[Rfam]
RNA sequence: ACACGCGAAAGGAGGUGAUCCGAAAAAAUGGUUUCUUUUCGGACUCGUGAGGUGACUGCGGGCUAAGGCCUGCCAGUCGCACUCUGUGCACCUCGGCAGGCCUUCUGCCGAACACCAACGCAGUCACCCGACCCGUGAGUCGCCGGCAGUCCGGCCGGCAGGCAUCCGUCCGAACCUAGGCGGACGGUGCCAAGACUCACGGGUCGCCUGCG
Numbered sequence: 001a002c003a004c005g006c007g008a009a010a011g012g013a014g015g016u017g018a019u020c021c022g023a024a025a026a027a028a029u030g031g032u033u034u035c036u037u038u039u040c041g042g043a044c045u046c047g048u049g050a051g052g053u054g055a056c057u058g059c060g061g062g063c064u065a066a067g068g069c070c071u072g073c074c075a076g077u078c079g080c081a082c083u084c085u086g087u088g089c090a091c092c093u094c095g096g097c098a099g100g101c102c103u104u105c106u107g108c109c110g111a112a113c114a115c116c117a118a119c120g121c122a123g124u125c126a127c128c129c130g131a132c133c134c135g136u137g138a139g140u141c142g143c144c145g146g147c148a149g150u151c152c153g154g155c156c157g158g159c160a161g162g163c164a165u166c167c168g169u170c171c172g173a174a175c176c177u178a179g180g181c182g183g184a185c186g187g188u189g190c191c192a193a194g195a196c197u198c199a200c201g202g203g204u205c206g207c208c209u210g211c212g
Stems, first nucleotide, its partner, number of pairs: 015059003019055001061109003066104001067102004072097003129206013142159006
Overview: Rfam assigns this 212-nucleotide sequence from Streptomyces vietnamensis to the family "Actinobacteria sRNA Ms_IGR-5". NCBI's taxonomy places the organism under Bacteria, Actinomycetota, Kitasatosporales, Streptomycetaceae, Streptomyces. A search with the family's covariance model found it, with a score of 85 bits.